[Rfam]
Background
This 112-nucleotide RNA from Burkholderia cenocepacia belongs to the Rfam family "Burkholderia sRNA Bp1_Cand684_SIPHT". Lineage of the source: Bacteria > Pseudomonadati > Pseudomonadota > Burkholderiales > Burkholderia cenocepacia. A reference for the family is Khoo et al. (2012), "Computational discovery and RT-PCR validation of novel Burkholderia conserved and Burkholderia pseudomallei unique sRNAs", BMC Genomics.
RNA sequence: AGAAAAGUGACCGCCGCCCCGCGCAGGGGCGACGCUAGCAGACCGUUAGCGCAACAGGUUCAACGAAAGGGCGUAGAGAACCAAAAACAAACCCACGCCCCCGCGAGCCACC
Numbered sequence: 001a002g003a004a005a006a007g008u009g010a011c012c013g014c015c016g017c018c019c020c021g022c023g024c025a026g027g028g029g030c031g032a033c034g035c036u037a038g039c040a041g042a043c044c045g046u047u048a049g050c051g052c053a054a055c056a057g058g059u060u061c062a063a064c065g066a067a068a069g070g071g072c073g074u075a076g077a078g079a080a081c082c083a084a085a086a087a088c089a090a091a092c093c094c095a096c097g098c099c100c101c102c103g104c105g106a107g108c109c110a111c112c
Stems, first nucleotide, its partner, number of pairs: 011076001013074002015031006059066002096105003